[Rfam]
RNA sequence: AGAGGUUAUAUUUGAGGUCAUAAGAGAAGCACUCAUCGUGUGGCCCGUCAGAUUCCAACAAAUCUGCAAUUUCAGCU
Numbered sequence: 001a002g003a004g005g006u007u008a009u010a011u012u013u014g015a016g017g018u019c020a021u022a023a024g025a026g027a028a029g030c031a032c033u034c035a036u037c038g039u040g041u042g043g044c045c046c047g048u049c050a051g052a053u054u055c056c057a058a059c060a061a062a063u064c065u066g067c068a069a070u071u072u073c074a075g076c077u
Stems, first nucleotide, its partner, number of pairs: 016045004022077001026073003029041003049066006
Dot-bracket structure: ...............((((..[...[[[(((.......)))))))...((((((......))))))....]]]...]
The family of this 77-nucleotide RNA sequence from Crocodylus porosus is "Mammalian CPEB3 ribozyme".
The base pairs follow the family's consensus structure, which is taken from published work.
Its family is annotated with RNA nuclease activity in the Gene Ontology.
The source organism's lineage runs through Eukaryota, Deuterostomia, Chordata, Crocodylia and Crocodylus.
Rfam 15.1 lists 5,706 matches to the family in 197 species.